[Rfam]
RNA: SAM/SAH riboswitch aptamer
RNA sequence: CGGUCCGCACAACGGCUUCCUGGCGUGCGGACGACAGCAGCCCAAUGGAGCA
Numbered sequence: 001c002g003g004u005c006c007g008c009a010c011a012a013c014g015g016c017u018u019c020c021u022g023g024c025g026u027g028c029g030g031a032c033g034a035c036a037g038c039a040g041c042c043c044a045a046u047g048g049a050g051c052a
Stems, first nucleotide, its partner, number of pairs: 004031007013022002015051003019048002